The record is a 91-nucleotide RNA sequence from Weissella koreensis, which matches "SAM riboswitch aptamer (S box leader)" in Rfam. Clan: SAM clan.
[Rfam]
RNA sequence: UUCCUAUCAAGAGUUCAGGGAGGGACUAGACCCGAUGAUCUGACACCAACGUACCCAAUUGGGCGAUGUGGUAACUUCUAGCAGAUGGGCG
Numbered sequence: 001u002u003c004c005u006a007u008c009a010a011g012a013g014u015u016c017a018g019g020g021a022g023g024g025a026c027u028a029g030a031c032c033c034g035a036u037g038a039u040c041u042g043a044c045a046c047c048a049a050c051g052u053a054c055c056c057a058a059u060u061g062g063g064c065g066a067u068g069u070g071g072u073a074a075c076u077u078c079u080a081g082c083a084g085a086u087g088g089g090c091g
Base pairs, nucleotide, nucleotide: 001091003089004088005087006086007085008084013044015043016042017041018040022033023032024031027080028079029078030077045072046071047070048069050068051067054062055061076083